This 74-nucleotide RNA from Xenopus laevis belongs to the Rfam family "mir-30 microRNA precursor family". A search with the family's covariance model found it, with a score of 53 bits. NCBI's taxonomy places the organism under Eukaryota, Metazoa, Euteleostomi, Pipoidea, Xenopus. Pairs were carried over by alignment from the consensus structure, which was predicted with PFOLD. Rfam describes the family as follows. This family consists of the mammalian microRNA (miRNA) precursor mir-30a.
RNA sequence: UUAGUUUAUGUAAACAUCCUACACUCAGCUCCAAUGUACGCUCUGACUGGGUGGGGGGUGUUUGCUUCGACUGA
Numbered sequence: 001u002u003a004g005u006u007u008a009u010g011u012a013a014a015c016a017u018c019c020u021a022c023a024c025u026c027a028g029c030u031c032c033a034a035u036g037u038a039c040g041c042u043c044u045g046a047c048u049g050g051g052u053g054g055g056g057g058g059u060g061u062u063u064g065c066u067u068c069g070a071c072u073g074a
Stems, first nucleotide, its partner, number of pairs: 002073005008067001010065011022053007030045001

Its family is annotated with RISC complex and gene silencing by miRNA in the Gene Ontology.